[Rfam]
RNA: SAM-I/IV (S-adenosyl methionine) riboswitch aptamer
Organism: Endobacter medicaginis
RNA sequence: GUCAUGCAUCAGGAGUUGGGCGGUGGCCCGACGCCAACCUGCCUGCCCGGGCAAGGUGGCGCCUUCCGCAAGAGCGGAGGGGAUGCGGCCUUGCCGUCCCAUGACCGGGACGGGGCAACCAGACGGGUUGAU
Numbered sequence: 001g002u003c004a005u006g007c008a009u010c011a012g013g014a015g016u017u018g019g020g021c022g023g024u025g026g027c028c029c030g031a032c033g034c035c036a037a038c039c040u041g042c043c044u045g046c047c048c049g050g051g052c053a054a055g056g057u058g059g060c061g062c063c064u065u066c067c068g069c070a071a072g073a074g075c076g077g078a079g080g081g082g083a084u085g086c087g088g089c090c091u092u093g094c095c096g097u098c099c100c101a102u103g104a105c106c107g108g109g110a111c112g113g114g115g116c117a118a119c120c121a122g123a124c125g126g127g128u129u130g131a132u
Stems, first nucleotide, its partner, number of pairs: 006086005015032001017031001018029004033060003038056003041052003045128005088116006